[Rfam]
RNA: STAXI RNA
RNA sequence: CGCUGUCAUCGACAGCCGCCAAUGUUUCCAGUACCGGGAGUGGUACGAGUGAUCUGCGAGAAGCGCCUUCGGGUGAUCACAACGCCAAAAUCAUAAGGACAGCGGUGUAGCCUGCGACUGAUGCCUUCGGGUGGCUACAACCCUUGAAAUCCGUUUAAUCUCUGGAAACGGAUGCCAUGCUGGCAACGUGCAU
Numbered sequence: 001c002g003c004u005g006u007c008a009u010c011g012a013c014a015g016c017c018g019c020c021a022a023u024g025u026u027u028c029c030a031g032u033a034c035c036g037g038g039a040g041u042g043g044u045a046c047g048a049g050u051g052a053u054c055u056g057c058g059a060g061a062a063g064c065g066c067c068u069u070c071g072g073g074u075g076a077u078c079a080c081a082a083c084g085c086c087a088a089a090a091u092c093a094u095a096a097g098g099a100c101a102g103c104g105g106u107g108u109a110g111c112c113u114g115c116g117a118c119u120g121a122u123g124c125c126u127u128c129g130g131g132u133g134g135c136u137a138c139a140a141c142c143c144u145u146g147a148a149a150u151c152c153g154u155u156u157a158a159u160c161u162c163u164g165g166a167a168a169c170g171g172a173u174g175c176c177a178u179g180c181u182g183g184c185a186a187c188g189u190g191c192a193u
Base pairs, nucleotide, nucleotide: 002016003015004014005013006012007011024064025063026062027061028060049080050079051078052077053076054075065074066073067072098122100120101119102118107138108137109136110135111134112133123132124131125130150172151171152170153169154168158189159188161186174184175183176182
Dot-bracket structure: .((((((...)))))).......[[[[[....................((((((.....]]]]](((....))))))))).................[.[[[....((((((.....]]].](((....)))))))))...........(((((...[[.[......))))).(((.....))).].]]....